[Rfam]
The family of this 235-nucleotide RNA from Paenibacillus sambharensis is "T-box leader".

RNA sequence: CUAUCUACAAUGAAGGGGAAGAGUACGCAGCAAUGCCUUCAGAGAGCGAACCGUGUUUUGGCUGAGAGGUUUCGCAGGAUGUAACUGCUACAGGUCGCCCCGGAGUUGCCCGAUCGAACGGAUAGUCCGGGAGAUCCGGCCGGCAGGCAGCCGUUAUCGAUCACGAAGUGCCGUAUGCGGAUACUGUAUACGGAACAAAGGUGGUACCACGGAAGUUCAGCCUUUCGUCCUUUGA
Number, nucleotide and partner (000 for none) at each position: 001c000002u000003a000004u000005c000006u000007a106008c105009a000010a000011u000012g000013a000014a000015g101016g100017g099018g098019a000020a000021g000022a000023g000024u000025a000026c000027g088028c087029a086030g085031c000032a000033a000034u000035g000036c078037c077038u076039u000040c000041a000042g000043a000044g000045a000046g075047c074048g073049a072050a071051c000052c000053g000054u000055g000056u000057u000058u000059u000060g000061g000062c000063u000064g000065a000066g000067a000068g000069g000070u000071u050072u049073c048074g047075c046076a038077g037078g036079a000080u000081g000082u000083a000084a000085c030086u029087g028088c027089u000090a000091c000092a000093g000094g000095u000096c000097g000098c018099c017100c016101c015102g000103g000104a000105g008106u007107u000108g000109c139110c138111c000112g136113a135114u134115c133116g000117a000118a000119c000120g000121g000122a000123u000124a000125g000126u000127c000128c000129g000130g000131g000132a000133g115134a114135u113136c112137c000138g110139g109140c000141c153142g152143g151144c000145a000146g000147g000148c000149a000150g000151c143152c142153g141154u000155u000156a000157u000158c000159g000160a000161u000162c000163a000164c000165g000166a000167a000168g000169u000170g000171c193172c192173g191174u190175a189176u188177g187178c186179g185180g000181a000182u000183a000184c000185u179186g178187u177188a176189u175190a174191c173192g172193g171194a000195a000196c000197a000198a232199a231200g230201g229202u000203g000204g000205u000206a000207c000208c000209a228210c227211g226212g225213a224214a223215g222216u000217u000218c000219a000220g000221c000222c215223u214224u213225u212226c211227g210228u209229c201230c200231u199232u198233u000234g000235a000
Lineage of the source: Bacteria > Bacillati > Bacillota > Bacilli > Paenibacillus.
A search with the family's covariance model found it, with a score of 94 bits.
Rfam describes the family as follows. Uncharged tRNA acts as the effector for transcription antitermination of genes in the T-box leader family. T-boxes are found upstream of many aminoacyl-tRNA synthetase genes and some amino acid biosynthetic genes usually in Gram-positive bacteria. The anticodon of a specific tRNA base pairs to a specifier sequence within the T-box motif, and the NCCA acceptor tail of the tRNA base pairs to a conserved bulge in the T-box antiterminator hairpin.
The family has 48 seed sequences and 19,395 matches in Rfam 15.1.
By type it is a cis-regulatory leader.